[Rfam]
RNA sequence: CCACUCACAAAGUGGCUGGGGUAUGUUGAAUUCAUAUCACAGCCAGCUUUGAUGAGCGGGA
Numbered sequence: 001c002c003a004c005u006c007a008c009a010a011a012g013u014g015g016c017u018g019g020g021g022u023a024u025g026u027u028g029a030a031u032u033c034a035u036a037u038c039a040c041a042g043c044c045a046g047c048u049u050u051g052a053u054g055a056g057c058g059g060g061a
Base pairs, nucleotide, nucleotide: 005055006054007053008051009050010049011048012047013045014044015043016042017041018040020038021037024036025035026034
RNA: mir-2 microRNA precursor family